[Rfam]
RNA sequence: UGAGUUGGUCAGACAAUCGCUGGUUUAUUGAAGCCCUUAAUGCCGAAAGGCAAGCCUGAAAUAGGUGAUAAGUGGGACAAAUAAACGAGAGGAAAGUCCGGGCUACACAGGGCAGAGUGCCAGCUAACAGCUGGGCAGCGUGAGCUGACGACAAGUGCAACAGAGAGCAGACCGCCUUUUUUCGGAAAGGUAAGGGUGAAAGGGUGUGGUAAGAGCGCACCGCGUGGCUGGUAACAGUUCACGGCAAGGUAAACUCCACUCGUAGCAAGACCAAAUAGGAACUCAAUGGGUGUGCCCGCUCAGAGUUCGGGUAGGUUGCUUGAGCGUUAUAGUGAUGUAACGCCUAGAGGAAUGAUUGUCCAAUGACAGAACCCGGCUUAUCGAUCAACUCGUCAA
Numbered sequence: 001u002g003a004g005u006u007g008g009u010c011a012g013a014c015a016a017u018c019g020c021u022g023g024u025u026u027a028u029u030g031a032a033g034c035c036c037u038u039a040a041u042g043c044c045g046a047a048a049g050g051c052a053a054g055c056c057u058g059a060a061a062u063a064g065g066u067g068a069u070a071a072g073u074g075g076g077a078c079a080a081a082u083a084a085a086c087g088a089g090a091g092g093a094a095a096g097u098c099c100g101g102g103c104u105a106c107a108c109a110g111g112g113c114a115g116a117g118u119g120c121c122a123g124c125u126a127a128c129a130g131c132u133g134g135g136c137a138g139c140g141u142g143a144g145c146u147g148a149c150g151a152c153a154a155g156u157g158c159a160a161c162a163g164a165g166a167g168c169a170g171a172c173c174g175c176c177u178u179u180u181u182u183c184g185g186a187a188a189g190g191u192a193a194g195g196g197u198g199a200a201a202g203g204g205u206g207u208g209g210u211a212a213g214a215g216c217g218c219a220c221c222g223c224g225u226g227g228c229u230g231g232u233a234a235c236a237g238u239u240c241a242c243g244g245c246a247a248g249g250u251a252a253a254c255u256c257c258a259c260u261c262g263u264a265g266c267a268a269g270a271c272c273a274a275a276u277a278g279g280a281a282c283u284c285a286a287u288g289g290g291u292g293u294g295c296c297c298g299c300u301c302a303g304a305g306u307u308c309g310g311g312u313a314g315g316u317u318g319c320u321u322g323a324g325c326g327u328u329a330u331a332g333u334g335a336u337g338u339a340a341c342g343c344c345u346a347g348a349g350g351a352a353u354g355a356u357u358g359u360c361c362a363a364u365g366a367c368a369g370a371a372c373c374c375g376g377c378u379u380a381u382c383g384a385u386c387a388a389c390u391c392g393u394c395a396a
Base pairs, nucleotide, nucleotide: 001392002391003390004389005388006387007386008385009384010383011381012360013359014358015357016356017355018354020089021088023086024085025084026083027082028081094379095378096377098376099375100374101373102372103265104264105263106262110296112295113294115261116260117259118258119257120134121133122132123131124130135149136147137146138145139144150256151255155254156253157250158249172195173194174191175190176189177188178187179186180185203221204220205219206218207217208216222245223243224242225241226240227239228237229236230235269317270316271315272314279308280307281306282305283304284303290301292299293298324343325342326341327340328339329338330337331336
A member of the RNA family "Bacterial RNase P class A" from [Actinobacillus] rossii, 396 nucleotides long.
A search with the family's covariance model found it, with a score of 325 bits.
NCBI's taxonomy places the organism under Bacteria, Pseudomonadota, Gammaproteobacteria, Pasteurellaceae, [Pasteurella] aerogenes-[Pasteurella] mairii-[Actinobacillus] rossii complex.
The family's RNA type in Rfam is ribozyme.